The family of this 69-nucleotide sequence from Scleropages formosus is "Selenocysteine insertion sequence 1".
[Rfam]
RNA sequence: UUGGCGCUUUGUGAAGGCCUGUUCCGAAAGCCCCCCCACGGGUGGGGGCAGGCCCGAUGUCACUGCCGA
Dot-bracket structure: (((((..........((((((((((.....(((......)))..))))))))))..........)))))
Numbered sequence: 001u002u003g004g005c006g007c008u009u010u011g012u013g014a015a016g017g018c019c020u021g022u023u024c025c026g027a028a029a030g031c032c033c034c035c036c037c038a039c040g041g042g043u044g045g046g047g048g049c050a051g052g053c054c055c056g057a058u059g060u061c062a063c064u065g066c067c068g069a
Stems, first nucleotide, its partner, number of pairs: 001069005016054010031042003

The base pairs follow the family's consensus structure, which is taken from published work.
It scores 38 bits against the family's covariance model.
NCBI's taxonomy places the organism under Eukaryota, Osteoglossocephalai, Osteoglossiformes, Osteoglossidae, Scleropages.